The family of this 211-nucleotide RNA from Antrihabitans stalagmiti is "Actinobacteria sRNA Ms_IGR-5".

RNA sequence: ACACAAGAGAGGAGGUGGUCUGGAGUUGGUUAUCCAUAGGACGCGUGAGGUGGCUGCCAGCUAGCCGCUACCGCUGACGGAUUCUUCUCUCCGCGCGAGCGGCUAGCGAAUCCAAGGCAGCUACCCGGCCCCCGAGCCUCCGGUCUUGUCCAGACCGGAACCUGCGAACGACGUUCACGUCUUCGUCGGUAUGGCUCGGGGGUCGUUCGCA
Numbered sequence: 001a002c003a004c005a006a007g008a009g010a011g012g013a014g015g016u017g018g019u020c021u022g023g024a025g026u027u028g029g030u031u032a033u034c035c036a037u038a039g040g041a042c043g044c045g046u047g048a049g050g051u052g053g054c055u056g057c058c059a060g061c062u063a064g065c066c067g068c069u070a071c072c073g074c075u076g077a078c079g080g081a082u083u084c085u086u087c088u089c090u091c092c093g094c095g096c097g098a099g100c101g102g103c104u105a106g107c108g109a110a111u112c113c114a115a116g117g118c119a120g121c122u123a124c125c126c127g128g129c130c131c132c133c134g135a136g137c138c139u140c141c142g143g144u145c146u147u148g149u150c151c152a153g154a155c156c157g158g159a160a161c162c163u164g165c166g167a168a169c170g171a172c173g174u175u176c177a178c179g180u181c182u183u184c185g186u187c188g189g190u191a192u193g194g195c196u197c198g199g200g201g202g203u204c205g206u207u208c209g210c211a
Stems, first nucleotide, its partner, number of pairs: 014058006060107006067100003072095003126205013140158006
Dot-bracket structure: .............((((((.................................)))))).((((((.(((..(((..................)))..))).))))))..................(((((((((((((.((((((.......))))))..................................)))))))))))))......